Bacterial RNase P class A: a 342-nucleotide RNA from Feifania hominis. By type it is a ribozyme. Ribonuclease P (RNase P) is a ubiquitous endoribonuclease, found in archaea, bacteria and eukarya as well as chloroplasts and mitochondria. It scores 291 bits against the family's covariance model. The family is grouped with related families in Rfam's "RNaseP clan".
[Rfam]
RNA sequence: CGAGUAAGCCAGACAGUCGCGUGGGGAUUCAUUCUCCAUGAGGAAAGUCCGAGCUCCACAGGGCAGGAUUGUGGGUAACGCCCACCAAAGGCGACUUUAGAGACAGUGCAACAGAGAGAUACCGCCGCUCUUUGAGCGGUAAGGGUGGAAAGGCGAGGUAAGAGCUCACCGGCGCACAGGGUGACCGUGCGGCCAUGUAAACCUAAUCUGGAGCAACACCGAUAGGGGACGAUCUGCGCUUGCCCGGCGCGUCCCGGGAAGGUGGCACGAGCCGUAUGGCAACAUGCGGCCUAGAUAGAUGACUGUCAAAUACAGAACUCGGCUUAUAGACUUAGUCGCACC
Numbered sequence: 001c002g003a004g005u006a007a008g009c010c011a012g013a014c015a016g017u018c019g020c021g022u023g024g025g026g027a028u029u030c031a032u033u034c035u036c037c038a039u040g041a042g043g044a045a046a047g048u049c050c051g052a053g054c055u056c057c058a059c060a061g062g063g064c065a066g067g068a069u070u071g072u073g074g075g076u077a078a079c080g081c082c083c084a085c086c087a088a089a090g091g092c093g094a095c096u097u098u099a100g101a102g103a104c105a106g107u108g109c110a111a112c113a114g115a116g117a118g119a120u121a122c123c124g125c126c127g128c129u130c131u132u133u134g135a136g137c138g139g140u141a142a143g144g145g146u147g148g149a150a151a152g153g154c155g156a157g158g159u160a161a162g163a164g165c166u167c168a169c170c171g172g173c174g175c176a177c178a179g180g181g182u183g184a185c186c187g188u189g190c191g192g193c194c195a196u197g198u199a200a201a202c203c204u205a206a207u208c209u210g211g212a213g214c215a216a217c218a219c220c221g222a223u224a225g226g227g228g229a230c231g232a233u234c235u236g237c238g239c240u241u242g243c244c245c246g247g248c249g250c251g252u253c254c255c256g257g258g259a260a261g262g263u264g265g266c267a268c269g270a271g272c273c274g275u276a277u278g279g280c281a282a283c284a285u286g287c288g289g290c291c292u293a294g295a296u297a298g299a300u301g302a303c304u305g306u307c308a309a310a311u312a313c314a315g316a317a318c319u320c321g322g323c324u325u326a327u328a329g330a331c332u333u334a335g336u337c338g339c340a341c342c
Base pairs, nucleotide, nucleotide: 001338002337003336005334006333007332008331010329011327012307013306014305015304016303017302018301020040021039022038023037024036025035026034027033045325046324047323049322050321051320052319053318054213055212056211057210061245062244063243064242066209067208068207069206070205071085072084073083074082075081086100087098088097089096090095101204102203106202107201108198109197110196122144123143124140125139126138127137128136129135130134152170153169155167156166157165172193173191174190175189176188177187179186180185217264218263219262220261226255227254228253229252230251231250237249238248239247240246271290272289273288274287275286276285277284278283